[Rfam]
RNA sequence: GUUAACUCGUUGAGGGUAGUAUCUAGUCGGGAUAAACUACGGCAUCGGAACUAAAAGAGAGUUAACCUUAUACUAAGUAGCUCAUAGAAUAAUCGGUAGAGGCCGGUAGCGAAAGUAUAAUGAUCUCCCAAGAUGUGGGCAAGCCUAGCUAGGGAGGUAUCGAAAACUGUUUGUUGAAGUGGCGUAAUUCUCCCUAUGUAAGCUCCCUUACUAAAAGUAAUACAUAAAGAAUUAUGAAAGUUGGGCAGUAUAAAAAUAAUGACCUGUUGCAAAUAACGGAUUAUCCUCGAAAUCGAGCCGUAUGGUCAGACAGACAACUUUAGGGUUAUAUAGAUAGUGCAAUGAGAUAUAACCUAGUAACUUAAAGUUAC
Numbered sequence: 001g002u003u004a005a006c007u008c009g010u011u012g013a014g015g016g017u018a019g020u021a022u023c024u025a026g027u028c029g030g031g032a033u034a035a036a037c038u039a040c041g042g043c044a045u046c047g048g049a050a051c052u053a054a055a056a057g058a059g060a061g062u063u064a065a066c067c068u069u070a071u072a073c074u075a076a077g078u079a080g081c082u083c084a085u086a087g088a089a090u091a092a093u094c095g096g097u098a099g100a101g102g103c104c105g106g107u108a109g110c111g112a113a114a115g116u117a118u119a120a121u122g123a124u125c126u127c128c129c130a131a132g133a134u135g136u137g138g139g140c141a142a143g144c145c146u147a148g149c150u151a152g153g154g155a156g157g158u159a160u161c162g163a164a165a166a167c168u169g170u171u172u173g174u175u176g177a178a179g180u181g182g183c184g185u186a187a188u189u190c191u192c193c194c195u196a197u198g199u200a201a202g203c204u205c206c207c208u209u210a211c212u213a214a215a216a217g218u219a220a221u222a223c224a225u226a227a228a229g230a231a232u233u234a235u236g237a238a239a240g241u242u243g244g245g246c247a248g249u250a251u252a253a254a255a256a257u258a259a260u261g262a263c264c265u266g267u268u269g270c271a272a273a274u275a276a277c278g279g280a281u282u283a284u285c286c287u288c289g290a291a292a293u294c295g296a297g298c299c300g301u302a303u304g305g306u307c308a309g310a311c312a313g314a315c316a317a318c319u320u321u322a323g324g325g326u327u328a329u330a331u332a333g334a335u336a337g338u339g340c341a342a343u344g345a346g347a348u349a350u351a352a353c354c355u356a357g358u359a360a361c362u363u364a365a366a367g368u369u370a371c
Stems, first nucleotide, its partner, number of pairs: 001066008017053002022049003026043004068120007080110003093106005125156005136147004166249005189230003195226006238320006261307004276301004286297004323355009357371005
Notes: Rfam assigns this 371-nucleotide RNA to the family "HOLDH RNA". By type it is a small RNA. Environmental (human tongue dorsum, human supragingival plaque).